[Rfam]
Streptomyces sRNA 4677: a 244-nucleotide RNA sequence from Streptomyces tagetis. The family has 12 seed sequences and 563 matches in Rfam 15.1. The organism belongs to Streptomyces, within Bacteria. For this family Rfam cites "Complex intra-operonic dynamics mediated by a small RNA in Streptomyces coelicolor" (Hindra et al., PLoS One, 2014). A search with the family's covariance model found it, with a score of 230 bits. Rfam describes the family as follows. Located in the intergenic region between anti-sigma factor SCO4677 gene and a putative regulatory protein gene SCO4676. scr4677 expression requires the SCO4677 activity and scr4677 sRNA itself seem to affect the levels of the SCO4676-associated transcripts.

RNA sequence: GGUUCCGGUGCCCUCGGCGCUCUGACCAGGAAAGAACCGGUGGGGAAAGAACCCCAACCAGCCCCACCCCUCCCGCCCGAGGCGCACCCUCACUCGGGCGGGUGAACAUCACCGGCUCGGCUGGAUUUCCGUACCCCCGGCUCCCCUACGCUCAGCGCACACAACCGCAAAAAGACUUCGGCCCUCGCCGGGACGGCAAUCCCAGUGCGAGGGCCUGACCACCAAGGAAGAAGACACCUUCCCG
Numbered sequence: 001g002g003u004u005c006c007g008g009u010g011c012c013c014u015c016g017g018c019g020c021u022c023u024g025a026c027c028a029g030g031a032a033a034g035a036a037c038c039g040g041u042g043g044g045g046a047a048a049g050a051a052c053c054c055c056a057a058c059c060a061g062c063c064c065c066a067c068c069c070c071u072c073c074c075g076c077c078c079g080a081g082g083c084g085c086a087c088c089c090u091c092a093c094u095c096g097g098g099c100g101g102g103u104g105a106a107c108a109u110c111a112c113c114g115g116c117u118c119g120g121c122u123g124g125a126u127u128u129c130c131g132u133a134c135c136c137c138c139g140g141c142u143c144c145c146c147u148a149c150g151c152u153c154a155g156c157g158c159a160c161a162c163a164a165c166c167g168c169a170a171a172a173a174g175a176c177u178u179c180g181g182c183c184c185u186c187g188c189c190g191g192g193a194c195g196g197c198a199a200u201c202c203c204a205g206u207g208c209g210a211g212g213g214c215c216u217g218a219c220c221a222c223c224a225a226g227g228a229a230g231a232a233g234a235c236a237c238c239u240u241c242c243c244g
Base pairs, nucleotide, nucleotide: 007223008222009221010220016077017076018075019074090105091104092103093102094101095100120156121155122154123153124152180215181214182213183212184211186209187208188207190203191202192201193200226242227241228240229239230238